[Rfam]
Overview:
Rfam assigns this 74-nucleotide sequence from Porphyromonas sp. HMSC065F10 to the family "tRNA". The base pairs follow the family's consensus structure, which is taken from published work.
RNA sequence: GGCUCGGUAGCUCAACUGAAUAGAGCAUCUGACUACGGAUCAGAAGGUUAUAGGUUUGAAUCCUAUCCGAGUCA
Numbered sequence: 001g002g003c004u005c006g007g008u009a010g011c012u013c014a015a016c017u018g019a020a021u022a023g024a025g026c027a028u029c030u031g032a033c034u035a036c037g038g039a040u041c042a043g044a045a046g047g048u049u050a051u052a053g054g055u056u057u058g059a060a061u062c063c064u065a066u067c068c069g070a071g072u073c074a
Base pairs, nucleotide, nucleotide: 001073002072003071004070005069006068007067010026011025012024013023028044029043030042031041032040050066051065052064053063054062

Rfam classes the family as a transfer RNA.